[Rfam]
RNA sequence: CAAACGGCUCUUUUCAGAGCCACCACACAUUCUUAAUAGAGCUGUA
Numbered sequence: 001c002a003a004a005c006g007g008c009u010c011u012u013u014u015c016a017g018a019g020c021c022a023c024c025a026c027a028c029a030u031u032c033u034u035a036a037u038a039g040a041g042c043u044g045u046a
Stems, first nucleotide, its partner, number of pairs: 006021006